Shown here is a 590-nucleotide part of an RNA from Faecalibacterium prausnitzii, a member of the family "Bacterial large subunit ribosomal RNA". Its Rfam clan is "LSU clan". The source organism's lineage runs through Bacteria, Bacillati, Clostridia, Faecalibacterium and Faecalibacterium prausnitzii. The sequence is in the family's curated seed alignment.
RNA sequence: CCCGCGACAAGACGGAAAGACCCCAUGGAGCUUUACUGUAGCCUAAUAUUGGGUUUCGAUGUUGCAUGCACAGGAUAGAUGGGACACAGGGAAACAAGUGCUUUGGCAUUUGUGGAGUGGCCGUUGGGAUACCAUCCUUGCGAUAUUGGAAUUCUAACCUGCGCCUUUGAAUCAAGGCGGGGGACAUUGUUAGGUGGGCAGUUUGACUGGGGCGGUCGCCUCCUAAAGAGUAACGGAGGCGUUCAAAGGUUCGCUCAGCUUGAACGGAAAUCAAGCAAAAGAGUGCAAACGCAGAAGCGAGCCUAACUGCGAGACUGACGGGUCGAGCAGUAACGAAAGUUGGAGUUAGUGAUCCGGUGGUAUGUGAGUGGAAAUGCCAUCGCUCAACGGAUAAAAGUUACCCUGGGGAUAACAGGCUGAUCUCCCCCAAGAGUCCACAUCGACGGGGAGGUUUGGCACCUCGAUGUCGGCUCAUCGCAUCCUGGGGCUGUAUUCGGUCCCAAGGGUUUGGCUGUUCGCCAAUUAAAGCGGUACGCGAGCUGGGUUCAGAACGUCGUGAGACAGUUCGGUCCCUAUCUGUCGUGGGCGCA
Numbered sequence: 001c002c003c004g005c006g007a008c009a010a011g012a013c014g015g016a017a018a019g020a021c022c023c024c025a026u027g028g029a030g031c032u033u034u035a036c037u038g039u040a041g042c043c044u045a046a047u048a049u050u051g052g053g054u055u056u057c058g059a060u061g062u063u064g065c066a067u068g069c070a071c072a073g074g075a076u077a078g079a080u081g082g083g084a085c086a087c088a089g090g091g092a093a094a095c096a097a098g099u100g101c102u103u104u105g106g107c108a109u110u111u112g113u114g115g116a117g118u119g120g121c122c123g124u125u126g127g128g129a130u131a132c133c134a135u136c137c138u139u140g141c142g143a144u145a146u147u148g149g150a151a152u153u154c155u156a157a158c159c160u161g162c163g164c165c166u167u168u169g170a171a172u173c174a175a176g177g178c179g180g181g182g183g184a185c186a187u188u189g190u191u192a193g194g195u196g197g198g199c200a201g202u203u204u205g206a207c208u209g210g211g212g213c214g215g216u217c218g219c220c221u222c223c224u225a226a227a228g229a230g231u232a233a234c235g236g237a238g239g240c241g242u243u244c245a246a247a248g249g250u251u252c253g254c255u256c257a258g259c260u261u262g263a264a265c266g267g268a269a270a271u272c273a274a275g276c277a278a279a280a281g282a283g284u285g286c287a288a289a290c291g292c293a294g295a296a297g298c299g300a301g302c303c304u305a306a307c308u309g310c311g312a313g314a315c316u317g318a319c320g321g322g323u324c325g326a327g328c329a330g331u332a333a334c335g336a337a338a339g340u341u342g343g344a345g346u347u348a349g350u351g352a353u354c355c356g357g358u359g360g361u362a363u364g365u366g367a368g369u370g371g372a373a374a375u376g377c378c379a380u381c382g383c384u385c386a387a388c389g390g391a392u393a394a395a396a397g398u399u400a401c402c403c404u405g406g407g408g409a410u411a412a413c414a415g416g417c418u419g420a421u422c423u424c425c426c427c428c429a430a431g432a433g434u435c436c437a438c439a440u441c442g443a444c445g446g447g448g449a450g451g452u453u454u455g456g457c458a459c460c461u462c463g464a465u466g467u468c469g470g471c472u473c474a475u476c477g478c479a480u481c482c483u484g485g486g487g488c489u490g491u492a493u494u495c496g497g498u499c500c501c502a503a504g505g506g507u508u509u510g511g512c513u514g515u516u517c518g519c520c521a522a523u524u525a526a527a528g529c530g531g532u533a534c535g536c537g538a539g540c541u542g543g544g545u546u547c548a549g550a551a552c553g554u555c556g557u558g559a560g561a562c563a564g565u566u567c568g569g570u571c572c573c574u575a576u577c578u579g580u581c582g583u584g585g586g587c588g589c590a
Base pairs, nucleotide, nucleotide: 001586002585003584004583005582006581007580008579010578011577012576014573015572022407023406024405025404027403028402029399030398031397032396033395035202036201037200038199042194043193044192045191046190047189048188051154052153053152054151055150056149057148058147059146060145061144062143063142064141065140066139068137078136079135080134081133082132085119086118087117094113095112096111097110098109099108100107101106158182159181160180162179163178164177165176166175167174205217206216207215208214218240219239220238221237222236223235241388243344244343249302250301251300252299253298254297255282256281258276259275260274261273262272263271283292284291307330308329309328310327313324314323315322332341333340334339355382356381357380358379359378360377361376364375365374416457417456418455420454421451422450423449424448425447426446427445431441432440468543469541470540471539472538473535474532475531476530477529478528481506482505484501485500486499487498488497489496508522509521510520511519512518549567550566551565552564553562554561555560